Description: This 109-nucleotide RNA sequence from Pristionchus pacificus belongs to the Rfam family "SL2 RNA". Rfam links the family to the GO term mRNA trans splicing, via spliceosome. A search with the family's covariance model found it, with a score of 47 bits. Rfam describes the family as follows. This family represents SL2 RNA. SL2 RNA is involved in trans splicing in lower eukaryotes. Rfam 15.1 lists 598 matches to the family in 38 species. It is annotated as a non-coding RNA gene.
[Rfam]
RNA sequence: GGUUUUAACCCAGUAUCUCAAGGUACGCUUGGGCAUCUGACCAGACAAUCUCUGUGUUAGAGAACCAUCAGUUUUUGGGCAGCUCUAGCGGGGGAUCUCCCGAGAGCAA
Numbered sequence: 001g002g003u004u005u006u007a008a009c010c011c012a013g014u015a016u017c018u019c020a021a022g023g024u025a026c027g028c029u030u031g032g033g034c035a036u037c038u039g040a041c042c043a044g045a046c047a048a049u050c051u052c053u054g055u056g057u058u059a060g061a062g063a064a065c066c067a068u069c070a071g072u073u074u075u076u077g078g079g080c081a082g083c084u085c086u087a088g089c090g091g092g093g094g095a096u097c098u099c100c101c102g103a104g105a106g107c108a109a
Stems, first nucleotide, its partner, number of pairs: 007036001009032002013028002016025001018023001038059004042054004085106002089102003092098002
The family is grouped with related families in Rfam's "SL clan".
A reference for the family is Evans and Blumenthal (2000), "trans splicing of polycistronic Caenorhabditis elegans pre-mRNAs: analysis of the SL2 RNA", Mol Cell Biol.